[Rfam]
RNA sequence: CGCGUCUGGUGGUAACACCAGGAGUGAUUGAGCAGAAGUCAGCAGAAGCCAUAGUAGCCAAACGCUCAUCGUAAUGGAUGAGACAGGGUGAAGGGC
Numbered sequence: 001c002g003c004g005u006c007u008g009g010u011g012g013u014a015a016c017a018c019c020a021g022g023a024g025u026g027a028u029u030g031a032g033c034a035g036a037a038g039u040c041a042g043c044a045g046a047a048g049c050c051a052u053a054g055u056a057g058c059c060a061a062a063c064g065c066u067c068a069u070c071g072u073a074a075u076g077g078a079u080g081a082g083a084c085a086g087g088g089u090g091a092a093g094g095g096c
Stems, first nucleotide, its partner, number of pairs: 001026002005022007039046002048096003057089003067080002

This 96-nucleotide RNA sequence from Leptolyngbya sp. Cla-17 belongs to the Rfam family "Group II catalytic intron D1-D4-1". A search with the family's covariance model found it, with a score of 66 bits. The base pairs follow the family's consensus structure. Taxonomically the source falls in Leptolyngbya (Bacteria, Bacillati, Cyanophyceae, Leptolyngbyales). Group II introns are found in rRNA, tRNA and mRNA of organelles in fungi, plants and protists, and also in mRNA in bacteria.